[Rfam]
The record is an 83-nucleotide sequence from Thermus thermophilus, which matches "tRNA" in Rfam. Rfam classes the family as a transfer RNA. Pairs were carried over by alignment from the consensus structure, which is taken from published work.

RNA sequence: GGGCAGGUGCCCGAGCGGCCAAAGGGGACGGUCUGUAAAACCGUUGGCGUAUGCCUUCGCUGGUUCGAAUCCAGCCCUGCCCA
Numbered sequence: 001g002g003g004c005a006g007g008u009g010c011c012c013g014a015g016c017g018g019c020c021a022a023a024g025g026g027g028a029c030g031g032u033c034u035g036u037a038a039a040a041c042c043g044u045u046g047g048c049g050u051a052u053g054c055c056u057u058c059g060c061u062g063g064u065u066c067g068a069a070u071c072c073a074g075c076c077c078u079g080c081c082c083a
Stems, first nucleotide, its partner, number of pairs: 001082007010026003028044005059075005